Shown here is a 425-nucleotide part of an RNA from Mucor lusitanicus, a member of the family "Eukaryotic large subunit ribosomal RNA".
The source organism's lineage runs through Eukaryota, Mucoromycota, Mucoromycetes, Mucorales and Mucor lusitanicus.
Pairs were carried over by alignment from the consensus structure, which is taken from published work.
[Rfam]
RNA sequence: UGAUCUGAAAUCAGGUGGGAUUACCCGCUGAACUUAAGCAUAUCAAUAAGCGGAGGAAAAGAAAAUAACAAUGAUUUCCCUAGUAACGGCGAGUGAAGAGGAAAGAGCUCAAAGUUGGAAACUGUUUGGCUUAGCUAAACCGUAUUGUAAACUGUAGAAACAUUUUCCUGGCACACCAGAUUAAUAAGUCCUUUGGAACAAGGCAUCAUGGAGGGUGAGAAUCCCGUCUUUGAUCUGAGUAGUUGUCUUUUGUGAUAUGUUUUCAAAGAGUCAGGUUGUUUGGGAAUGCAGCCUAAAUUGGGUGGUAAAUCUCACCUAAAGCUAAAUAUUUGCGAGAGACCGAUAGCGAACAAGUACCGUGAGGGAAAGAUGAAAAGAACUUUGAAAAGAGAGUUAAACAGUAUGUGAAAUUGUUAAAAGGGAAC
Numbered sequence: 001u002g003a004u005c006u007g008a009a010a011u012c013a014g015g016u017g018g019g020a021u022u023a024c025c026c027g028c029u030g031a032a033c034u035u036a037a038g039c040a041u042a043u044c045a046a047u048a049a050g051c052g053g054a055g056g057a058a059a060a061g062a063a064a065a066u067a068a069c070a071a072u073g074a075u076u077u078c079c080c081u082a083g084u085a086a087c088g089g090c091g092a093g094u095g096a097a098g099a100g101g102a103a104a105g106a107g108c109u110c111a112a113a114g115u116u117g118g119a120a121a122c123u124g125u126u127u128g129g130c131u132u133a134g135c136u137a138a139a140c141c142g143u144a145u146u147g148u149a150a151a152c153u154g155u156a157g158a159a160a161c162a163u164u165u166u167c168c169u170g171g172c173a174c175a176c177c178a179g180a181u182u183a184a185u186a187a188g189u190c191c192u193u194u195g196g197a198a199c200a201a202g203g204c205a206u207c208a209u210g211g212a213g214g215g216u217g218a219g220a221a222u223c224c225c226g227u228c229u230u231u232g233a234u235c236u237g238a239g240u241a242g243u244u245g246u247c248u249u250u251u252g253u254g255a256u257a258u259g260u261u262u263u264c265a266a267a268g269a270g271u272c273a274g275g276u277u278g279u280u281u282g283g284g285a286a287u288g289c290a291g292c293c294u295a296a297a298u299u300g301g302g303u304g305g306u307a308a309a310u311c312u313c314a315c316c317u318a319a320a321g322c323u324a325a326a327u328a329u330u331u332g333c334g335a336g337a338g339a340c341c342g343a344u345a346g347c348g349a350a351c352a353a354g355u356a357c358c359g360u361g362a363g364g365g366a367a368a369g370a371u372g373a374a375a376a377g378a379a380c381u382u383u384g385a386a387a388a389g390a391g392a393g394u395u396a397a398a399c400a401g402u403a404u405g406u407g408a409a410a411u412u413g414u415u416a417a418a419a420g421g422g423a424a425c
Stems, first nucleotide, its partner, number of pairs: 024055001025053005035042002065072002076103004086094002106323004115149001118146002121143002124140004157264002159261004164257001166255002170247004178236007188204001190203004207211001214224002273294007300317005357364002380391004
Dot-bracket structure: .......................((((((.....((....))......))))).).........((....))...((((......((.....)).....))))..((((.....(..((.((.((((.........)))).)).))..).......((((((.(.((..((((....(((((((...(.((((......)))))..(...)..((.......)).....))))))).......))))......)).))))).))........(((((((........))))))).....(((((........)))))..)))).................................((....))...............((((....))))..................................